RNA sequence: CCGUCAUGCCCUUUCUGGGCGUUUCCUCCCUAAACUGGCCGCAGCCUCGUGCUGCGGCCGUUUUUCUUUCGGGG
Numbered sequence: 001c002c003g004u005c006a007u008g009c010c011c012u013u014u015c016u017g018g019g020c021g022u023u024u025c026c027u028c029c030c031u032a033a034a035c036u037g038g039c040c041g042c043a044g045c046c047u048c049g050u051g052c053u054g055c056g057g058c059c060g061u062u063u064u065u066c067u068u069u070c071g072g073g074g
Base pairs, nucleotide, nucleotide: 008020009019010018011017037059038058039057040056041055042054043053044052045051
Record summary: Rfam assigns this 74-nucleotide sequence from Parvularcula dongshanensis to the family "Makes More Granules Regulator RNA (mmgR)". The match comes from Rfam's covariance-model search (60 bits). For this family Rfam cites "Genome-wide profiling of Hfq-binding RNAs uncovers extensive post-transcriptional rewiring of major stress response and symbiotic regulons in Sinorhizobium meliloti" (Torres-Quesada et al., RNA Biol, 2014). The source organism's lineage runs through Bacteria, Pseudomonadati, Alphaproteobacteria, Parvularculales and Parvularcula. Pairs were carried over by alignment from the consensus structure.